[Rfam]
RNA sequence: UUUCGUCGUUGUGGCAGGGUUGGGGUUUCUAUGCGGCAUGUGCCUUGUUAAUAUAAAACGCAAUGCCCUUAGAAAUCCCAAAAAUGUGCAACGCGAUACGU
Numbered sequence: 001u002u003u004c005g006u007c008g009u010u011g012u013g014g015c016a017g018g019g020u021u022g023g024g025g026u027u028u029c030u031a032u033g034c035g036g037c038a039u040g041u042g043c044c045u046u047g048u049u050a051a052u053a054u055a056a057a058a059c060g061c062a063a064u065g066c067c068c069u070u071a072g073a074a075a076u077c078c079c080a081a082a083a084a085u086g087u088g089c090a091a092c093g094c095g096a097u098a099c100g101u
Base pairs, nucleotide, nucleotide: 008097009096010095011094012093013092014089015088016087021080022079023078024077025076026075027074028073029072031070033068035067036066037065038064039063041062042061043060
Rfam assigns this 101-nucleotide RNA to the family "mir-2788 microRNA precursor family". The base pairs follow the family's consensus structure, which was predicted with RNAalifold. Rfam 15.1 lists 89 matches to the family in 88 species.